[Rfam]
RNA: PyrR binding site
Organism: Lactobacillus crispatus
RNA sequence: AUGACCUUUAAAGUUAGUCCCGUGAGGCUAAGAAGGAAAUCUGCACAAGCUAAUACUUUUUGUCGUUAGCUAAUACAGAAGGACCAUCUUGAGCCAUGCGCUCUUGGUGGUCUUUUUCUU
Number, nucleotide and partner (000 for none) at each position: 001a000002u000003g000004a000005c036006c035007u034008u033009u032010a000011a000012a000013g000014u031015u030016a029017g028018u027019c026020c000021c000022g000023u000024g000025a000026g019027g018028c017029u016030a015031a014032g009033a008034a007035g006036g005037a000038a000039a000040u000041c078042u077043g076044c000045a074046c000047a000048a071049g070050c069051u068052a067053a066054u065055a000056c000057u000058u000059u000060u000061u000062g000063u000064c000065g054066u053067u052068a051069g050070c049071u048072a000073a000074u045075a000076c043077a042078g041079a115080a114081g113082g112083a111084c110085c109086a108087u107088c106089u000090u000091g103092a102093g101094c100095c000096a000097u000098g000099c000100g094101c093102u092103c091104u000105u000106g088107g087108u086109g085110g084111u083112c082113u081114u080115u079116u000117u000118c000119u000120u000